[Rfam]
RNA sequence: UAUUAUGGUUAAGGUAAACCAAAGACAGUAGGGGAGCUUAUCUUAAAAAUCCUACCGAGGGGAACAGAAUGAUUACAUAUGAUUAUCUGUACUUCUUCAUGUCUUGGGCGACGUGGAGUUUUUUUAUUAAAAAA
Numbered sequence: 001u002a003u004u005a006u007g008g009u010u011a012a013g014g015u016a017a018a019c020c021a022a023a024g025a026c027a028g029u030a031g032g033g034g035a036g037c038u039u040a041u042c043u044u045a046a047a048a049a050u051c052c053u054a055c056c057g058a059g060g061g062g063a064a065c066a067g068a069a070u071g072a073u074u075a076c077a078u079a080u081g082a083u084u085a086u087c088u089g090u091a092c093u094u095c096u097u098c099a100u101g102u103c104u105u106g107g108g109c110g111a112c113g114u115g116g117a118g119u120u121u122u123u124u125u126a127u128u129a130a131a132a133a134a
Stems, first nucleotide, its partner, number of pairs: 028055006034042002095118009

The record is a 134-nucleotide sequence from Carnobacteriaceae bacterium zg-C25, which matches "Ribosomal protein L10 leader" in Rfam. The family's consensus secondary structure was predicted with CMfinder.